[Rfam]
RNA sequence: AACAUAGAUGCAACUUUUAGCGUAGUCUAAGAUGCAUCUAUGUUGGCGAAUUUGUUCCCGAUCAGGAGAUUAAGAGCCGCAUAGUCGCUACUAUGUGGCUCUUUUUGUAUC
Numbered sequence: 001a002a003c004a005u006a007g008a009u010g011c012a013a014c015u016u017u018u019a020g021c022g023u024a025g026u027c028u029a030a031g032a033u034g035c036a037u038c039u040a041u042g043u044u045g046g047c048g049a050a051u052u053u054g055u056u057c058c059c060g061a062u063c064a065g066g067a068g069a070u071u072a073a074g075a076g077c078c079g080c081a082u083a084g085u086c087g088c089u090a091c092u093a094u095g096u097g098g099c100u101c102u103u104u105u106u107g108u109a110u111c
Stems, first nucleotide, its partner, number of pairs: 001044011015032006075100004080095006

Notes:
This 111-nucleotide sequence from Abiotrophia defectiva belongs to the Rfam family "trpB ncRNA motif". Gene Ontology term of the family: regulation of gene expression. It is annotated as a cis-regulatory element. NCBI's taxonomy places the organism under Bacteria, Bacillota, Bacilli, Lactobacillales, Abiotrophia defectiva. trpB ncRNA motif was reported as a strong cis regulatory motif candidate, with potential to be a cis regulatory riboswitch type, it have been identified in Firmicutes and Fusobacteria. A search with the family's covariance model found it, with a score of 66 bits. The family's consensus secondary structure is taken from published work.